Notes:
A member of the RNA family "L31-Corynebacteriaceae ribosomal protein leader" from Corynebacterium efficiens, 55 nucleotides long. Lineage of the source: Bacteria > Bacillati > Actinomycetota > Corynebacterium > Corynebacterium efficiens. It is annotated as a cis-regulatory leader.
RNA sequence: ACUCGGGCACGAUCCAUGAUGUGUGGAACCGACCCGUAGUUUCAAUCCUGAGGGA
Dot-bracket structure: (((((((.....((((((...)))))).....)))).)))...............

The literature on the family includes a 2020 paper in BMC Microbiol by Eckert and Weinberg, "Discovery of 20 novel ribosomal leader candidates in bacteria and archaea".